This 153-nucleotide RNA from Pangasianodon hypophthalmus belongs to the Rfam family "Small nucleolar RNA U109". Gene Ontology terms of the family: RNA processing and nucleolus.
RNA sequence: UUGCAUGCAGUGGCUUUGCUGCCACAACACGUCCACCUCUCCCCACUGAUGAGAUUGUGGCUGUAGAAACAGCAUGCUAGAGUAACAUGGAGUUAACAGGGCCACCAGUCUCUCAAGAACAGACUGCGUUGGUAGUAUAGCACUCCUACAAUA
Numbered sequence: 001u002u003g004c005a006u007g008c009a010g011u012g013g014c015u016u017u018g019c020u021g022c023c024a025c026a027a028c029a030c031g032u033c034c035a036c037c038u039c040u041c042c043c044c045a046c047u048g049a050u051g052a053g054a055u056u057g058u059g060g061c062u063g064u065a066g067a068a069a070c071a072g073c074a075u076g077c078u079a080g081a082g083u084a085a086c087a088u089g090g091a092g093u094u095a096a097c098a099g100g101g102c103c104a105c106c107a108g109u110c111u112c113u114c115a116a117g118a119a120c121a122g123a124c125u126g127c128g129u130u131g132g133u134a135g136u137a138u139a140g141c142a143c144u145c146c147u148a149c150a151a152u153a
Base pairs, nucleotide, nucleotide: 003077004076005075006074007073008072016066017065018064019063021061022060023059024058025057026056027055089146090145091144092143101133102132105128106126107125108124109123110122111121